A member of the RNA family "TPP riboswitch aptamer (THI element)" from Cytobacillus kochii, 113 nucleotides long.

RNA sequence: ACCAAAAUGUGGGGGGGCCAGUAAUUGCUGGUUGAGAUUUCAUCCGUUUUAGAUGAUGACCCUUUGAACCUGAUCUGUCUCAUAGCAGCGUAGGGAACAUAUUUAAAACAAUU
Numbered sequence: 001a002c003c004a005a006a007a008u009g010u011g012g013g014g015g016g017g018c019c020a021g022u023a024a025u026u027g028c029u030g031g032u033u034g035a036g037a038u039u040u041c042a043u044c045c046g047u048u049u050u051a052g053a054u055g056a057u058g059a060c061c062c063u064u065u066g067a068a069c070c071u072g073a074u075c076u077g078u079c080u081c082a083u084a085g086c087a088g089c090g091u092a093g094g095g096a097a098c099a100u101a102u103u104u105a106a107a108a109c110a111a112u113u
Stems, first nucleotide, its partner, number of pairs: 007100004011063004016057001017032005040056004069094004075088004
A search with the family's covariance model found it, with a score of 66 bits.
NCBI's taxonomy places the organism under Bacteria, Bacilli, Caryophanales, Bacillaceae, Cytobacillus.